Source information:
Small nucleolar RNA SNORA40: a 127-nucleotide RNA from Heterocephalus glaber. Taxonomically the source falls in Heterocephalus (Eukaryota, Metazoa, Glires, Hystricomorpha). A reference for the family is Ofengand and Bakin (1997), "Mapping to nucleotide resolution of pseudouridine residues in large subunit ribosomal RNAs from representative eukaryotes, prokaryotes, archaebacteria, mitochondria and chloroplasts", J Mol Biol. The match comes from Rfam's covariance-model search (117 bits).
[Rfam]
RNA sequence: AGCACUUGUGUCUGUUGUUGUCUAACUGUGGACUAAGACUUAUGGACAGGUGCAAAAAAUAAAUCCUCUUUUGCAACCCAGAAGUCAUUGUUCAGCAUGAGUUCUGAUACGUACAGGGAGGAAUAUU
Numbered sequence: 001a002g003c004a005c006u007u008g009u010g011u012c013u014g015u016u017g018u019u020g021u022c023u024a025a026c027u028g029u030g031g032a033c034u035a036a037g038a039c040u041u042a043u044g045g046a047c048a049g050g051u052g053c054a055a056a057a058a059a060u061a062a063a064u065c066c067u068c069u070u071u072u073g074c075a076a077c078c079c080a081g082a083a084g085u086c087a088u089u090g091u092u093c094a095g096c097a098u099g100a101g102u103u104c105u106g107a108u109a110c111g112u113a114c115a116g117g118g119a120g121g122a123a124u125a126u127u
Stems, first nucleotide, its partner, number of pairs: 002053008011044001014039003018035001020033002026030001063124002066121002069118005079106005085100004